A member of the RNA family "Glycine riboswitch aptamer" from Falsibacillus pallidus, 89 nucleotides long.
RNA sequence: AUGACGACAAGGGGAGAGACUGGUUUCCGGCGCCGAAGGAGCAAGCAGACAACUGUGAAUCUCUCAGGCAAAAAGACUCUUGUUGGACG
Numbered sequence: 001a002u003g004a005c006g007a008c009a010a011g012g013g014g015a016g017a018g019a020c021u022g023g024u025u026u027c028c029g030g031c032g033c034c035g036a037a038g039g040a041g042c043a044a045g046c047a048g049a050c051a052a053c054u055g056u057g058a059a060u061c062u063c064u065c066a067g068g069c070a071a072a073a074a075g076a077c078u079c080u081u082g083u084u085g086g087a088c089g
Stems, first nucleotide, its partner, number of pairs: 006084008020030004032069003035065002039063003045056002